The family of this 76-nucleotide sequence from Alligator sinensis is "Mammalian CPEB3 ribozyme". The match comes from Rfam's covariance-model search (45 bits). Pairs were carried over by alignment from the consensus structure, which is taken from published work. The organism belongs to Alligator, within Eukaryota. Its family is annotated with RNA nuclease activity in the Gene Ontology.
RNA sequence: GGUUGCAAGUUUGAGGUCAUAGCAGUAGUGCUCAUGGCACAGCCUGUCAGAUUCUAAGAAAUCUGCAACUUCUGCU
Numbered sequence: 001g002g003u004u005g006c007a008a009g010u011u012u013g014a015g016g017u018c019a020u021a022g023c024a025g026u027a028g029u030g031c032u033c034a035u036g037g038c039a040c041a042g043c044c045u046g047u048c049a050g051a052u053u054c055u056a057a058g059a060a061a062u063c064u065g066c067a068a069c070u071u072c073u074g075c076u
Stems, first nucleotide, its partner, number of pairs: 015044003021076005027070001028040003048065006